[Rfam]
Nucleotides: 047
Stems, first nucleotide, its partner, number of pairs: 003047003007042004015036004020031004
Number, partner (000 for none) and nucleotide at each position: 001000c002000c003047g004046g005045u006000u007042c008041c009040g010039g011000u012000u013000c014000c015036c016035g017034u018033g019000c020031g021030c022029g023028c024000g025000c026000c027000c028023g029022c030021g031020u032000c033018c034017a035016c036015g037000a038000u039010c040009c041008g042007g043000c044000g045005a046004c047003c